[Rfam]
RNA sequence: AUCAUUGCGCAGUGGCGGUAUUGUAAGCCUAUGAAGUUAAUCUGAGGUGCGAUUAUUGCUAGUUGAAAAGUUUUACCAAUUCCUGCCUUUAUGACUUGAAAUACAAUCAGAAAUGACAAUUUAUGACAGCCUCCAUGUAGG
Numbered sequence: 001a002u003c004a005u006u007g008c009g010c011a012g013u014g015g016c017g018g019u020a021u022u023g024u025a026a027g028c029c030u031a032u033g034a035a036g037u038u039a040a041u042c043u044g045a046g047g048u049g050c051g052a053u054u055a056u057u058g059c060u061a062g063u064u065g066a067a068a069a070g071u072u073u074u075a076c077c078a079a080u081u082c083c084u085g086c087c088u089u090u091a092u093g094a095c096u097u098g099a100a101a102u103a104c105a106a107u108c109a110g111a112a113a114u115g116a117c118a119a120u121u122u123a124u125g126a127c128a129g130c131c132u133c134c135a136u137g138u139a140g141g
Base pairs, nucleotide, nucleotide: 020053021052022051023050024049027048028047029046035043036042085117087115088113089112090111092109093108094107096105130141131140132139